Rfam assigns this 102-nucleotide sequence from Intestinibacter bartlettii to the family "Purine riboswitch aptamer".
The source organism's lineage runs through Bacteria, Clostridia, Peptostreptococcales, Peptostreptococcaceae and Intestinibacter bartlettii.
Riboswitches are metabolite binding domains within certain messenger RNAs that serve as precision sensors for their corresponding targets. Allosteric rearrangement of mRNA structure is mediated by ligand binding, and this results in modulation of gene expression. A class of riboswitches that selectively recognises guanine and becomes saturated at concentrations as low as 5 nM. In Bacillus subtilis, this mRNA motif is located on at least five separate transcriptional units that together encode 17 genes that are mostly involved in purine transport and purine nucleotide biosynthesis. It has also been shown that some members of this family are specific for adenine instead.
A search with the family's covariance model found it, with a score of 95 bits.
Its family is annotated with purine nucleobase biosynthetic process in the Gene Ontology.
RNA sequence: AAAGAUAAUUAAUAAAUCACUCGUAUAUGCUCAGUAAUAUGGUCUGAGAGUUUCUACCUAGAUACCGUAAAUAUCUAGACUAUGAGUGGAAUUAUUAUAUCU
Numbered sequence: 001a002a003a004g005a006u007a008a009u010u011a012a013u014a015a016a017u018c019a020c021u022c023g024u025a026u027a028u029g030c031u032c033a034g035u036a037a038u039a040u041g042g043u044c045u046g047a048g049a050g051u052u053u054c055u056a057c058c059u060a061g062a063u064a065c066c067g068u069a070a071a072u073a074u075c076u077a078g079a080c081u082a083u084g085a086g087u088g089g090a091a092u093u094a095u096u097a098u099a100u101c102u
Stems, first nucleotide, its partner, number of pairs: 018088008030048005058078007